[Rfam]
RNA sequence: CACAAUUGAAUAGGCUCCUCAAGGGUGAUCGGCUCAUCCCCUGUAGAAAGGGGGUGUUGCCAUGUCUGCACAUGAAGUCAUUUCGCUCAUGCUCCAGUUUGGGCUGUUUUUGAUCGCAGCUCUUACUUUAGUCGUGACGAUCAUGAAGCAUAUGUUAGACAACCAAAAUAAAAAGAAAUAGAUCGCCCUUAGAGUUUGGCAGCUCGGGCGAUCUAUUUCGUCUAACAAAACCAUAUUGAGCCGACACCCUUGAAGGGUAUCAGUUGUGCAACGACCGUAGGUGUUCCCGCACCUGCG
Number, nucleotide and partner (000 for none) at each position: 001c268002a267003c266004a000005a264006u263007u262008g000009a260010a000011u244012a000013g242014g241015c240016u239017c000018c194019u193020c192021a190022a189023g188024g187025g186026u000027g183028a000029u181030c000031g000032g000033c000034u000035c056036a055037u000038c053039c052040c051041c050042u049043g000044u000045a000046g000047a000048a000049a042050g041051g040052g039053g038054g000055u036056g035057u000058u000059g000060c000061c000062a000063u000064g160065u159066c158067u157068g155069c154070a153071c000072a000073u000074g000075a000076a000077g092078u091079c000080a000081u000082u000083u000084c000085g000086c000087u000088c000089a000090u000091g078092c077093u000094c000095c000096a000097g000098u000099u000100u000101g151102g000103g149104c148105u000106g000107u000108u000109u000110u000111u000112g000113a000114u000115c000116g000117c000118a000119g000120c000121u000122c000123u000124u000125a000126c000127u000128u000129u000130a000131g000132u000133c000134g000135u000136g000137a000138c000139g000140a000141u000142c000143a000144u000145g000146a000147a000148g104149c103150a000151u101152a000153u070154g069155u068156u000157a067158g066159a065160c064161a000162a000163c000164c000165a000166a000167a000168a000169u000170a000171a000172a000173a000174a000175g000176a000177a000178a000179u000180a000181g029182a000183u027184c000185g000186c025187c024188c023189u022190u021191a000192g020193a019194g018195u000196u000197u000198g000199g000200c000201a000202g000203c000204u000205c000206g000207g000208g000209c000210g000211a000212u000213c000214u000215a000216u000217u000218u000219c000220g000221u000222c000223u000224a000225a000226c000227a000228a000229a000230a000231c000232c000233a000234u000235a000236u000237u000238g000239a016240g015241c014242c013243g000244a011245c000246a258247c257248c256249c000250u000251u000252g000253a000254a000255g000256g248257g247258u246259a000260u009261c000262a007263g006264u005265u000266g003267u002268g001269c000270a000271a000272c000273g000274a000275c000276c297277g296278u295279a294280g293281g292282u291283g290284u289285u000286c000287c000288c000289g284290c283291a282292c281293c280294u279295g278296c277297g276
RNA: BsrG